[Rfam]
RNA sequence: UAGAAGAGCCUGUUAAGCUCAGGAGGGAUAGCGCCAUUGAUGAUCUUGAAUCUUAUGGAUUGUAUAAUCUGAUCCUCAUUAGCGCUAUCCAUCCUGAGUUUCAUCGGUUCUUCUU
Numbered sequence: 001u002a003g004a005a006g007a008g009c010c011u012g013u014u015a016a017g018c019u020c021a022g023g024a025g026g027g028a029u030a031g032c033g034c035c036a037u038u039g040a041u042g043a044u045c046u047u048g049a050a051u052c053u054u055a056u057g058g059a060u061u062g063u064a065u066a067a068u069c070u071g072a073u074c075c076u077c078a079u080u081a082g083c084g085c086u087a088u089c090c091a092u093c094c095u096g097a098g099u100u101u102c103a104u105c106g107g108u109u110c111u112u113c114u115u
Stems, first nucleotide, its partner, number of pairs: 010106001016100009026090009
This 115-nucleotide RNA from Theobroma cacao belongs to the Rfam family "MIR390 microRNA precursor family". The organism belongs to Theobroma, within Eukaryota. Rfam links the family to the GO terms RISC complex and miRNA-mediated post-transcriptional gene silencing. The match comes from Rfam's covariance-model search (105 bits). Rfam 15.1 lists 649 matches to the family in 206 species. The family's consensus secondary structure was predicted with WAR.